The record is a 177-nucleotide RNA from Elaeis guineensis, which matches "MIR408 microRNA precursor family" in Rfam. A reference for the family is Mica et al. (2009), "High throughput approaches reveal splicing of primary microRNA transcripts and tissue specific expression of mature microRNAs in Vitis vinifera", BMC Genomics. The match comes from Rfam's covariance-model search (79 bits).

RNA sequence: CAGGGAAGAGGGCACAAAGACGGGGACGAGGUGGAGCAUGGGAUGGGGUCAUCAACACACGCCCAACUCGAAGCAUCAAACGUUCAGGAGAGGAGCAAAGGGAGCGAGAGAGAUCUUUGGUUGUUGCUGCUCUUCCCAUGCACUGCCUCUUCCCUGGCUCUCUCUCUCUCUCUCUCU
Numbered sequence: 001c002a003g004g005g006a007a008g009a010g011g012g013c014a015c016a017a018a019g020a021c022g023g024g025g026a027c028g029a030g031g032u033g034g035a036g037c038a039u040g041g042g043a044u045g046g047g048g049u050c051a052u053c054a055a056c057a058c059a060c061g062c063c064c065a066a067c068u069c070g071a072a073g074c075a076u077c078a079a080a081c082g083u084u085c086a087g088g089a090g091a092g093g094a095g096c097a098a099a100g101g102g103a104g105c106g107a108g109a110g111a112g113a114u115c116u117u118u119g120g121u122u123g124u125u126g127c128u129g130c131u132c133u134u135c136c137c138a139u140g141c142a143c144u145g146c147c148u149c150u151u152c153c154c155u156g157g158c159u160c161u162c163u164c165u166c167u168c169u170c171u172c173u174c175u176c177u
Stems, first nucleotide, its partner, number of pairs: 018159002021156006029148006036141005042136001046132004